The record is a 104-nucleotide RNA from Halobacillus sp. BBL2006, which matches "Purine riboswitch aptamer" in Rfam.
The family's consensus secondary structure is taken from published work.
Lineage of the source: Bacteria > Bacillota > Caryophanales > Bacillaceae > Halobacillus.

[Rfam]
RNA sequence: ACCAAACCAAAUAUUCUUACUCGUAUAUCCUCGGAAAUAUGGUCUGAGUGUCUCUAGCCGGUUCCCACCGAAAGAACUGGACUACGAGUUGAAGUAUUAGAUUG
Numbered sequence: 001a002c003c004a005a006a007c008c009a010a011a012u013a014u015u016c017u018u019a020c021u022c023g024u025a026u027a028u029c030c031u032c033g034g035a036a037a038u039a040u041g042g043u044c045u046g047a048g049u050g051u052c053u054c055u056a057g058c059c060g061g062u063u064c065c066c067a068c069c070g071a072a073a074g075a076a077c078u079g080g081a082c083u084a085c086g087a088g089u090u091g092a093a094g095u096a097u098u099a100g101a102u103u104g
Stems, first nucleotide, its partner, number of pairs: 019089007030048006058080007